[Rfam]
RNA sequence: UGGUUUAGAAGUAGAGAAUGUGCUGCUACGCACCCUUUGGGUCAAAAGAAAUGUGGAAUUGGCACACCACCGUAACCA
Numbered sequence: 001u002g003g004u005u006u007a008g009a010a011g012u013a014g015a016g017a018a019u020g021u022g023c024u025g026c027u028a029c030g031c032a033c034c035c036u037u038u039g040g041g042u043c044a045a046a047a048g049a050a051a052u053g054u055g056g057a058a059u060u061g062g063c064a065c066a067c068c069a070c071c072g073u074a075a076c077c078a
Base pairs, nucleotide, nucleotide: 001078002077003076004075005074008071011029012028013027014026020065021064022063023062024061031048032042033041034040035039053070054069055068056067